[Rfam]
RNA sequence: CGAAUCGGGCAAGAGAGAGUACGGUGUCUCUGAGUCCUUGAACGAAUCUGGCGAGGGAAAUAGAUCUGGCCGUGAUAUAUCGUUUCAGUCGUCCUUUCUGGUUGACGAUCUGAUUGUUGCUCGUCCACAU
Number, nucleotide and partner (000 for none) at each position: 001c000002g000003a000004a000005u000006c000007g037008g036009g035010c034011a000012a000013g030014a029015g028016a027017g025018a000019g000020u000021a000022c000023g000024g000025u017026g000027u016028c015029u014030c013031u000032g000033a000034g010035u009036c008037c007038u000039u000040g000041a000042a000043c000044g000045a000046a000047u000048c000049u000050g000051g000052c000053g000054a000055g000056g000057g000058a000059a000060a000061u000062a000063g000064a000065u000066c000067u000068g126069g125070c000071c123072g122073u000074g120075a000076u000077a000078u000079a114080u113081c112082g111083u000084u000085u000086c000087a000088g109089u108090c107091g106092u105093c104094c000095u000096u101097u000098c000099u000100g000101g096102u000103u000104g093105a092106c091107g090108a089109u088110c000111u082112g081113a080114u079115u000116g000117u000118u000119g000120c074121u000122c072123g071124u000125c069126c068127a000128c000129a000130u000

Shown here is a 130-nucleotide sequence from Brassica carinata, a member of the family "Small nucleolar RNA snoR111". The source organism's lineage runs through Eukaryota, Euphyllophyta, Magnoliopsida, rosids and Brassica. The family's consensus secondary structure was predicted with WAR. On this family, see Marker et al., Curr Biol 2002: "Experimental RNomics: identification of 140 candidates for small non-messenger RNAs in the plant Arabidopsis thaliana". Rfam links the family to the GO terms nucleolus and RNA processing.